RNA sequence: GUCUGUCCAGUGCCCCUUUUAUAUUGUACUACUGAUAACCCAGUUAUUAAAGCAGUGCAAUGUUAAAAGGGCAUUGGCCAGGGA
Numbered sequence: 001g002u003c004u005g006u007c008c009a010g011u012g013c014c015c016c017u018u019u020u021a022u023a024u025u026g027u028a029c030u031a032c033u034g035a036u037a038a039c040c041c042a043g044u045u046a047u048u049a050a051a052g053c054a055g056u057g058c059a060a061u062g063u064u065a066a067a068a069g070g071g072c073a074u075u076g077g078c079c080a081g082g083g084a
Base pairs, nucleotide, nucleotide: 002083003082005079007077008076009075010074012072013071014070015069017067018066019065022062023061024060025059026058027057028056029055030054

mir-130 microRNA precursor family: an 84-nucleotide sequence from Cyprinus carpio. The family's consensus secondary structure was predicted with PFOLD. Gene Ontology terms of the family: miRNA-mediated post-transcriptional gene silencing and RISC complex. A reference for the family is Lagos-Quintana et al. (2002), "Identification of tissue-specific microRNAs from mouse", Curr Biol.